[Rfam]
RNA sequence: UCAAGUUCUCGGGGCGGGGUGAAAGUCCCCACCGGCGGUGAUGGCCUGGCGACAGGCAUGAGCCCGCGAGCGCGCCGGAGAGGGGCCCAGCCCCCCCGAAGGCGGUCAGCAGAGACCGGUGAGACCCCGGCGCCGACGGUCAUAGUCCGGAUGAAAGAGAACGGGA
Numbered sequence: 001u002c003a004a005g006u007u008c009u010c011g012g013g014g015c016g017g018g019g020u021g022a023a024a025g026u027c028c029c030c031a032c033c034g035g036c037g038g039u040g041a042u043g044g045c046c047u048g049g050c051g052a053c054a055g056g057c058a059u060g061a062g063c064c065c066g067c068g069a070g071c072g073c074g075c076c077g078g079a080g081a082g083g084g085g086c087c088c089a090g091c092c093c094c095c096c097c098g099a100a101g102g103c104g105g106u107c108a109g110c111a112g113a114g115a116c117c118g119g120u121g122a123g124a125c126c127c128c129g130g131c132g133c134c135g136a137c138g139g140u141c142a143u144a145g146u147c148c149g150g151a152u153g154a155a156a157g158a159g160a161a162c163g164g165g166a
Stems, first nucleotide, its partner, number of pairs: 005162006017029003031146002033135002035067004062133002070110002114131001116130004137149003
RNA: FMN riboswitch aptamer (RFN element)